[Rfam]
This 61-nucleotide sequence belongs to the Rfam family "Plastid-psbN 5UTR RNA". The family's RNA type in Rfam is cis-regulatory element. Rfam describes the family as follows. Plastid psbN is a non-coding RNA (ncRNA) recognised in plastids. It was reported as a conserved 11 stem-loop in the prime untranslated region (5UTR) of psbN genes. It has been reported that the motif is retained in a subset of mature transcripts in barley, which can suggests a possible role in transcript alternative 5 prime processing.

Nucleotides: 061
Base pairs, nucleotide, nucleotide: 017045018044019043020042021041022040023039024038025037026036027035
Number, partner (000 for none) and nucleotide at each position: 001000c002000g003000c004000a005000a006000c007000a008000c009000c010000c011000a012000u013000c014000a015000a016000a017045g018044g019043a020042g021041u022040a023039g024038u025037u026036c027035c028000c029000c030000a031000a032000c033000c034000a035027g036026g037025a038024g039023c040022u041021a042020c043019u044018u045017u046000c047000c048000c049000a050000u051000a052000u053000u054000c055000c056000g057000a058000a059000u060000u061000c